[Rfam]
RNA sequence: UAAUAAUGCCACUGCAACAAUUACAUUCGAACCGGGUCAGGACCGAAAGGUAGCAGCCAUAAGGAUUAGGAUUGUGUGCGGUGGUUUUAUUUUGA
Dot-bracket structure: ....(((((((((((.((((((..((((......(((....(((....)))....)))....))))...)))))))..))))))...))))....
The record is a 95-nucleotide RNA sequence from Spiroplasma endosymbiont of Danaus chrysippus, which matches "Bacterial small signal recognition particle RNA" in Rfam. Lineage of the source: Bacteria > Bacillati > Mycoplasmatota > Mollicutes > Spiroplasma.